[Rfam]
RNA sequence: ACUACAGUACGGCUCAUCGCCGGGCAUCUUGCGUGCUUUAGACAUGGCAAGCUGCCUAGUGAAGGGCAAUGCCGUGGU
Numbered sequence: 001a002c003u004a005c006a007g008u009a010c011g012g013c014u015c016a017u018c019g020c021c022g023g024g025c026a027u028c029u030u031g032c033g034u035g036c037u038u039u040a041g042a043c044a045u046g047g048c049a050a051g052c053u054g055c056c057u058a059g060u061g062a063a064g065g066g067c068a069a070u071g072c073c074g075u076g077g078u
Stems, first nucleotide, its partner, number of pairs: 004075002007072003012067004017062004023056002028051005
About this RNA: mir-980 microRNA precursor family: a 78-nucleotide RNA from Ladona fulva. Taxonomically the source falls in Ladona (Eukaryota, Opisthokonta, Metazoa, Epiprocta). The base pairs follow the family's consensus structure, which was predicted with RNAalifold.